[Rfam]
RNA: Repression of heat shock gene expression (ROSE) element
Organism: Sphingomonas sp. Root710
RNA sequence: CCGGGCGCCGCAAAGGGCCCGGCGGGAACGAGAGAGCGCCGGCUCUUUCCGGCGUUUCUCAUGCUCAGAUUGCUCAGAAGAGGAUUUGGAUAUGAGGA
Numbered sequence: 001c002c003g004g005g006c007g008c009c010g011c012a013a014a015g016g017g018c019c020c021g022g023c024g025g026g027a028a029c030g031a032g033a034g035a036g037c038g039c040c041g042g043c044u045c046u047u048u049c050c051g052g053c054g055u056u057u058c059u060c061a062u063g064c065u066c067a068g069a070u071u072g073c074u075c076a077g078a079a080g081a082g083g084a085u086u087u088g089g090a091u092a093u094g095a096g097g098a
Stems, first nucleotide, its partner, number of pairs: 001022006008016002033057001035056008058096006065089007073082003
Dot-bracket structure: ((((((.((.....))))))))..........(.((((((((......)))))))))((((((.(((((((.(((....)))))))))).))))))..